Rfam assigns this 57-nucleotide RNA from Blautia luti to the family "pemK RNA". The match comes from Rfam's covariance-model search (35 bits). The base pairs follow the family's consensus structure, which is taken from published work. The source organism's lineage runs through Bacteria, Bacillati, Bacillota, Lachnospirales and Blautia.

[Rfam]
RNA sequence: AUAAUGAUACUUCCAGAAAAAAUCUGGUCAUAUUUAAUGACGGUGCAAAACCGAUGU
Numbered sequence: 001a002u003a004a005u006g007a008u009a010c011u012u013c014c015a016g017a018a019a020a021a022a023u024c025u026g027g028u029c030a031u032a033u034u035u036a037a038u039g040a041c042g043g044u045g046c047a048a049a050a051c052c053g054a055u056g057u
Stems, first nucleotide, its partner, number of pairs: 012054001013027004028040003041053003